[Rfam]
RNA sequence: GUUCUCUGUUAGUUUUGCAUAGUUGCACUGCAAGAAGAGAUGCGUUGUGCAAAUCUAUGCAAAGCUGAUAGUGGCC
Number, nucleotide and partner (000 for none) at each position: 001g000002u000003u074004c073005u000006c071007u070008g069009u068010u067011a066012g065013u064014u063015u062016u061017g060018c059019a058020u057021a056022g000023u052024u051025g050026c049027a048028c047029u000030g045031c044032a000033a000034g000035a000036a000037g000038a000039g000040a000041u000042g000043c000044g031045u030046u000047g028048u027049g026050c025051a024052a023053a000054u000055c000056u021057a020058u019059g018060c017061a016062a015063a014064g013065c012066u011067g010068a009069u008070a007071g006072u000073g004074g003075c000076c000
A member of the RNA family "mir-19 microRNA precursor family" from Oryzias latipes, 76 nucleotides long. Taxonomically the source falls in Oryzias (Eukaryota, Opisthokonta, Eumetazoa, Ovalentaria). For this family Rfam cites "Identification of novel genes coding for small expressed RNAs" (Lagos-Quintana et al., Science, 2001).